[Rfam]
This 128-nucleotide RNA from Dichanthelium oligosanthes belongs to the Rfam family "small nucleolar RNA snoR137".
The literature on the family includes a 2009 paper in Nucleic Acids Res by Chen and Wu, "Mining small RNA sequencing data: a new approach to identify small nucleolar RNAs in Arabidopsis".
A search with the family's covariance model found it, with a score of 49 bits.
Rfam classes the family as an H/ACA-box small nucleolar RNA.
RNA sequence: UUUGUUACAUAAGAGUGACCUUCCAGUUUGGUCAUUUGUCAGGAUGAAGCAUAUAUGUGAAUUGGCAAGUAUUAAACAGCAUUGUGCAUUCUUCUGUCGUGCAGUGUUACCUGUCUCCUGGCACAUGU
Numbered sequence: 001u002u003u004g005u006u007a008c009a010u011a012a013g014a015g016u017g018a019c020c021u022u023c024c025a026g027u028u029u030g031g032u033c034a035u036u037u038g039u040c041a042g043g044a045u046g047a048a049g050c051a052u053a054u055a056u057g058u059g060a061a062u063u064g065g066c067a068a069g070u071a072u073u074a075a076a077c078a079g080c081a082u083u084g085u086g087c088a089u090u091c092u093u094c095u096g097u098c099g100u101g102c103a104g105u106g107u108u109a110c111c112u113g114u115c116u117c118c119u120g121g122c123a124c125a126u127g128u
Stems, first nucleotide, its partner, number of pairs: 003051004008046001016034005065122002068119002071116001078108003082104005